RNA sequence: GUACGGUUGAUUCGUCCCGUUCCGAUCGGCGCAGGAGCAUAAGAAAAAACAGCUUUUUAGACAAAAUGCUGAAUGGCGGAGC
Numbered sequence: 001g002u003a004c005g006g007u008u009g010a011u012u013c014g015u016c017c018c019g020u021u022c023c024g025a026u027c028g029g030c031g032c033a034g035g036a037g038c039a040u041a042a043g044a045a046a047a048a049a050c051a052g053c054u055u056u057u058u059a060g061a062c063a064a065a066a067u068g069c070u071g072a073a074u075g076g077c078g079g080a081g082c
Stems, first nucleotide, its partner, number of pairs: 001022001003020004050071004055066003
Record summary:
RAGATH-28 RNA: an 82-nucleotide sequence. Rfam's curators put it in the seed alignment. The family's consensus secondary structure is taken from published work. The family's RNA type in Rfam is small RNA.